[Rfam]
RNA sequence: AGCACUCAUAACAUGGUGCUGACAGAAGUACAUCCGACGUGACAUCAAUGUUACGGCCACCACUGUUGUGGCUUUGGGAUUAC
Numbered sequence: 001a002g003c004a005c006u007c008a009u010a011a012c013a014u015g016g017u018g019c020u021g022a023c024a025g026a027a028g029u030a031c032a033u034c035c036g037a038c039g040u041g042a043c044a045u046c047a048a049u050g051u052u053a054c055g056g057c058c059a060c061c062a063c064u065g066u067u068g069u070g071g072c073u074u075u076g077g078g079a080u081u082a083c
Base pairs, nucleotide, nucleotide: 001020002019003018004017005016028083029082030081034078035077039054040053041052042051043050055073056072057071058070059069060068